[Rfam]
RNA sequence: CAAGCAAGCCAAGGACCAUAUGUUUUUGUGUUACACUUUCAGCAUCUAAGCUUAUUAUAUUCAACACAAGGAGAAAGUCCCCGGAAACAAAAUAUCUUCUGUCCAAUGAUUAAAGAUUAGGGCAGUGGGGUAUUUAGUAAAGCAACUUUGUUUGUUUGUUUUUUUCAUAAUAAAAGUAAUAUGGUCACCCUAUAAUAAUGGGGCAACUUAAUGGGGCUUACUCUGGCUUGUUU
Numbered sequence: 001c002a003a004g005c006a007a008g009c010c011a012a013g014g015a016c017c018a019u020a021u022g023u024u025u026u027u028g029u030g031u032u033a034c035a036c037u038u039u040c041a042g043c044a045u046c047u048a049a050g051c052u053u054a055u056u057a058u059a060u061u062c063a064a065c066a067c068a069a070g071g072a073g074a075a076a077g078u079c080c081c082c083g084g085a086a087a088c089a090a091a092a093u094a095u096c097u098u099c100u101g102u103c104c105a106a107u108g109a110u111u112a113a114a115g116a117u118u119a120g121g122g123c124a125g126u127g128g129g130g131u132a133u134u135u136a137g138u139a140a141a142g143c144a145a146c147u148u149u150g151u152u153u154g155u156u157u158g159u160u161u162u163u164u165u166c167a168u169a170a171u172a173a174a175a176g177u178a179a180u181a182u183g184g185u186c187a188c189c190c191u192a193u194a195a196u197a198a199u200g201g202g203g204c205a206a207c208u209u210a211a212u213g214g215g216g217c218u219u220a221c222u223c224u225g226g227c228u229u230g231u232u233u
Stems, first nucleotide, its partner, number of pairs: 002233010014186006025071001026069006039054001041052003075219003079216004087102003091098002104158003124147003133141003188203006
Dot-bracket structure: .((((((((((..((((((.....(((((((.......(.(((......))).).........)))))).)...[[[.[[[[....(((.((....)).))).(((.................(((......(((...)))...)))........)))......................)))))).((((((....)))))).........]]]]]]]....))))))))))